A member of the RNA family "Small nucleolar RNA snoR27" from Camellia sinensis, 92 nucleotides long.
RNA sequence: UAGGAUCAAUGAUGAUUGAUAAAAACUGCGUUAUCUAUCUGUAAUUCCCUUUAAAGGGAUUGAAUGAUAUUCAUAUUAUUCUGAGAUCCAUU
Numbered sequence: 001u002a003g004g005a006u007c008a009a010u011g012a013u014g015a016u017u018g019a020u021a022a023a024a025a026c027u028g029c030g031u032u033a034u035c036u037a038u039c040u041g042u043a044a045u046u047c048c049c050u051u052u053a054a055a056g057g058g059a060u061u062g063a064a065u066g067a068u069a070u071u072c073a074u075a076u077u078a079u080u081c082u083g084a085g086a087u088c089c090a091u092u
Base pairs, nucleotide, nucleotide: 002091003089004088005087006086
Lineage of the source: Eukaryota > eudicotyledons > Pentapetalae > asterids > Camellia.